[Rfam]
RNA sequence: AAAACGGUGGGUUACUGGCGUAAACGUGGAUAACCACGAGGGAGCACACUGAUAAUCGGCCGUACGCCUGGGCAAAGUAU
Numbered sequence: 001a002a003a004a005c006g007g008u009g010g011g012u013u014a015c016u017g018g019c020g021u022a023a024a025c026g027u028g029g030a031u032a033a034c035c036a037c038g039a040g041g042g043a044g045c046a047c048a049c050u051g052a053u054a055a056u057c058g059g060c061c062g063u064a065c066g067c068c069u070g071g072g073c074a075a076a077g078u079a080u
Stems, first nucleotide, its partner, number of pairs: 003053001005051005011045002015041002017068005026037004059073003
Rfam assigns this 80-nucleotide RNA sequence from Paenibacillus foliorum to the family "ZMP/ZTP riboswitch aptamer (pfl RNA motif)". It scores 55 bits against the family's covariance model. Rfam links the family to the GO terms one-carbon metabolic process and regulation of purine nucleotide biosynthetic process.